[Rfam]
RNA sequence: GGCAGUUCUCGGGUGAGACACCAUGGAAUCGGGCUCUCUCCUCUCUGGUUCCAGGUGUAUCACCUGAGAACUGCA
Dot-bracket structure: .((.((((((((((((..((((..(((((((((..........))))))))).))))..)))))))))))).)).
Rfam assigns this 75-nucleotide RNA from Myotis davidii to the family "mir-9223 microRNA precursor family". A search with the family's covariance model found it, with a score of 84 bits. Rfam links the family to the GO terms miRNA-mediated post-transcriptional gene silencing and RISC complex.